[Rfam]
RNA sequence: AUGGGAGAGGUUCGCGAACUCCCUCUAUAAAAAACUAAGGUUAU
Number, nucleotide and partner (000 for none) at each position: 001a000002u000003g000004g000005g000006a026007g025008a024009g023010g022011u000012u000013c000014g000015c000016g036017a000018a000019c000020u000021c000022c010023c009024u008025c007026u006027a000028u000029a000030a000031a000032a000033a000034a000035c000036u016037a000038a000039g000040g000041u000042u000043a000044u000
The family of this 44-nucleotide RNA sequence from Ectobacillus ponti is "PreQ1 (pre queuosine) riboswitch aptamer". This family is a bacterial riboswitch that binds to the metabolite preQ1, an intermediate in the biosynthesis of the modified nucleoside queuosine from GTP. One example of this riboswitch is located in the leader of the Bacillus subtilis ykvJKLM (queCDEF) operon which encodes four genes necessary for queuosine production. PreQ1 binding to the riboswitch aptamer is thought to induce premature transcription termination within the leader to down-regulate expression of these genes. The source organism's lineage runs through Bacteria, Bacillati, Bacilli, Caryophanales and Ectobacillus. Its family is annotated with queuosine biosynthetic process in the Gene Ontology.